[Rfam]
RNA sequence: CCCUGCGCGAAUGAGCAGGGCCGUUUUUUUGACUGUAACAAGGGGGCUGCCCGUG
Dot-bracket structure: ((((((.(....).))))))...................................
Rfam assigns this 55-nucleotide RNA sequence from Erwinia amylovora to the family "ClpQY promoter". It is annotated as a cis-regulatory element. On this family, see Lien et al., Open Microbiol J 2009: "Regulation of clpQ(+)Y(+) (hslV(+)U(+)) gene expression in Escherichia coli". Gene Ontology term of the family: mRNA stabilization. Pairs were carried over by alignment from the consensus structure.